[Rfam]
RNA sequence: GUGCUGGCUAUGUCGUGUGGAUACUUCGAUCAUUAAGCCAAUGGUUAAGCUAUCUUUUUGUCGCAAAGAAUAUCCGGGUUCAAUUCCUGGGUGAUCACCCACUCGUCCACUGACGCAAUCCAGCAUUUUU
Numbered sequence: 001g002u003g004c005u006g007g008c009u010a011u012g013u014c015g016u017g018u019g020g021a022u023a024c025u026u027c028g029a030u031c032a033u034u035a036a037g038c039c040a041a042u043g044g045u046u047a048a049g050c051u052a053u054c055u056u057u058u059u060g061u062c063g064c065a066a067a068g069a070a071u072a073u074c075c076g077g078g079u080u081c082a083a084u085u086c087c088u089g090g091g092u093g094a095u096c097a098c099c100c101a102c103u104c105g106u107c108c109a110c111u112g113a114c115g116c117a118a119u120c121c122a123g124c125a126u127u128u129u130u
Base pairs, nucleotide, nucleotide: 002125003124004123005122006121007120012114013113014112015111017110018109019108020107026083028081029080
This 130-nucleotide sequence from Amphimedon queenslandica belongs to the Rfam family "Vault RNA". The family's RNA type in Rfam is non-coding RNA gene. The base pairs follow the family's consensus structure, which is taken from published work.